[Rfam]
RNA: mir-39 microRNA precursor family
Organism: Caenorhabditis brenneri
RNA sequence: AGGGCCUAGCUGAUUUCAACCACGGUAAUAAGCUCCAUAGAUAGCCUAUCACCGGGUGGAAAUCAGUUAGGGCCU
Numbered sequence: 001a002g003g004g005c006c007u008a009g010c011u012g013a014u015u016u017c018a019a020c021c022a023c024g025g026u027a028a029u030a031a032g033c034u035c036c037a038u039a040g041a042u043a044g045c046c047u048a049u050c051a052c053c054g055g056g057u058g059g060a061a062a063u064c065a066g067u068u069a070g071g072g073c074c075u
Stems, first nucleotide, its partner, number of pairs: 001075003005071002008068010019057003023054004028049003032045003